[Rfam]
Nucleotides: 069
Stems, first nucleotide, its partner, number of pairs: 015025002028065001030063001032059002037054003041050001043048001
Number, partner (000 for none) and nucleotide at each position: 001000c002000u003000u004000c005000a006000c007000c008000g009000a010000c011000c012000c013000c014000a015025g016024c017000a018000g019000c020000a021000g022000g023000g024016g025015c026000c027000g028065c029000u030063c031000c032059c033058g034000g035000c036000c037054c038053u039052g040000c041050c042000c043048g044000u045000a046000c047000g048043c049000c050041g051000c052039c053038a054037g055000c056000a057000g058033c059032g060000c061000c062000u063030g064000c065028g066000c067000c068000u069000c
ASpks TB sRNA: a 69-nucleotide sequence from Sinosporangium album. The source organism's lineage runs through Bacteria, Actinomycetota, Actinomycetes, Streptosporangiales and Sinosporangium.